This 179-nucleotide RNA sequence from Rhodovulum sp. BSW8 belongs to the Rfam family "Ruegeria cis52 sRNA". Rfam 15.1 lists 277 matches to the family in 275 species. Lineage of the source: Bacteria > Pseudomonadati > Pseudomonadota > Alphaproteobacteria > Rhodovulum. The literature on the family includes a 2016 paper in Front Microbiol by Rivers et al., "Experimental Identification of Small Non-Coding RNAs in the Model Marine Bacterium Ruegeria pomeroyi DSS-3". By type it is a small RNA. A search with the family's covariance model found it, with a score of 90 bits.

RNA sequence: UCCGCAGCGCAUGGCGCAGCACCACGGCACGAAAGCUCAGACCCUUCAGCCGGGCGGUGCGGAUGUAUUGCGCUGUCAUCACCUCGGCCAUCGAGGCCCGCGUCAUCCGGGCGAUAUAGCCCAUGCCGUAAAGCGCCACGGUCGCGACAGGCAGGGUGAAGUUCUGGAAGGUCGCCCCC
Number, nucleotide and partner (000 for none) at each position: 001u000002c141003c140004g139005c000006a000007g136008c135009g134010c133011a000012u131013g000014g000015c128016g127017c000018a000019g126020c125021a124022c000023c000024a000025c000026g000027g000028c000029a000030c000031g120032a000033a000034a000035g000036c000037u000038c113039a000040g000041a000042c109043c000044c000045u000046u105047c000048a103049g000050c000051c100052g099053g098054g097055c075056g074057g073058u072059g071060c070061g069062g068063a000064u000065g000066u000067a000068u062069u061070g060071c059072g058073c057074u056075g055076u000077c000078a000079u000080c000081a000082c096083c095084u094085c093086g092087g000088c000089c000090a000091u000092c086093g085094a084095g083096g082097c054098c053099c052100g051101c000102g000103u048104c000105a046106u000107c000108c000109g042110g000111g000112c000113g038114a000115u000116a000117u000118a000119g000120c031121c000122c000123a000124u021125g020126c019127c016128g015129u000130a000131a012132a000133g010134c009135g008136c007137c000138a000139c004140g003141g002142u000143c000144g000145c000146g178147a000148c000149a000150g173151g172152c171153a000154g165155g164156g163157u000158g000159a000160a000161g000162u000163u156164c155165u154166g000167g000168a000169a000170g000171g152172u151173c150174g000175c000176c000177c000178c146179c000